Shown here is a 54-nucleotide RNA from Acetobacteraceae bacterium H6797, a member of the family "serC leader". It is annotated as a cis-regulatory leader. The match comes from Rfam's covariance-model search (47 bits). Rfam links the family to the GO term regulation of gene expression. About the family: This family is a putative regulatory RNA structure that is found upstream of the serC-serA operon in some alpha-proteobacteria. Taxonomically the source falls in Acetobacteraceae (Bacteria, Pseudomonadati, Pseudomonadota, Acetobacterales). The pairing is the family consensus, mapped onto this sequence.
RNA sequence: UGCCGGGCCACGCCCCCCCAACGGGGCGCAUUCGCUUCUGGAAGGGAGCUUUCU
Numbered sequence: 001u002g003c004c005g006g007g008c009c010a011c012g013c014c015c016c017c018c019c020a021a022c023g024g025g026g027c028g029c030a031u032u033c034g035c036u037u038c039u040g041g042a043a044g045g046g047a048g049c050u051u052u053c054u
Stems, first nucleotide, its partner, number of pairs: 011028006034049006